[Rfam]
RNA: msiK RNA
Organism: Streptomyces somaliensis
RNA sequence: AGAGACCUCUCCUUUACUCGGAUCGUCCGGCACGUUCCUGCCGGUGAAGGGACCCGUCA
Numbered sequence: 001a002g003a004g005a006c007c008u009c010u011c012c013u014u015u016a017c018u019c020g021g022a023u024c025g026u027c028c029g030g031c032a033c034g035u036u037c038c039u040g041c042c043g044g045u046g047a048a049g050g051g052a053c054c055c056g057u058c059a
Stems, first nucleotide, its partner, number of pairs: 010051007027044006